[Rfam]
RNA: SgrS RNA
Organism: Klebsiella sp. RIT-PI-d
RNA sequence: GAUGAAGCAAGGAGGUGGAUUAUGCAGAAGUCAUUCAUUCGUCAGUUUUACCUGAGCUAUUUCAUUGCCACACAGGAUGUGUGCUGGCUGGCCCGCCAGAGUGCACGGCAGCGAUACGCAUUGCUGGAAGAAUUGAUGCAGUGGGACGUUACAAACCCUGUCUCUGAUCCCGUUCAUCGUCAGGAGAAAACAUCGCCUGAACGAUGAGCAGAUACCGACUUGCAGAUAUCAUGUGUGACUGAGAAUUGGUGUAAAAUCACCCGCCAGCAGAUUCUUUCUGCUGGCUUUUUUC
Numbered sequence: 001g002a003u004g005a006a007g008c009a010a011g012g013a014g015g016u017g018g019a020u021u022a023u024g025c026a027g028a029a030g031u032c033a034u035u036c037a038u039u040c041g042u043c044a045g046u047u048u049u050a051c052c053u054g055a056g057c058u059a060u061u062u063c064a065u066u067g068c069c070a071c072a073c074a075g076g077a078u079g080u081g082u083g084c085u086g087g088c089u090g091g092c093c094c095g096c097c098a099g100a101g102u103g104c105a106c107g108g109c110a111g112c113g114a115u116a117c118g119c120a121u122u123g124c125u126g127g128a129a130g131a132a133u134u135g136a137u138g139c140a141g142u143g144g145g146a147c148g149u150u151a152c153a154a155a156c157c158c159u160g161u162c163u164c165u166g167a168u169c170c171c172g173u174u175c176a177u178c179g180u181c182a183g184g185a186g187a188a189a190a191c192a193u194c195g196c197c198u199g200a201a202c203g204a205u206g207a208g209c210a211g212a213u214a215c216c217g218a219c220u221u222g223c224a225g226a227u228a229u230c231a232u233g234u235g236u237g238a239c240u241g242a243g244a245a246u247u248g249g250u251g252u253a254a255a256a257u258c259a260c261c262c263g264c265c266a267g268c269a270g271a272u273u274c275u276u277u278c279u280g281c282u283g284g285c286u287u288u289u290u291u292c
Stems, first nucleotide, its partner, number of pairs: 001230004007223005034145004038140001040138010052127002054124001056122001068090001071087001072085001075082001097118001100115001102113003158217001263285008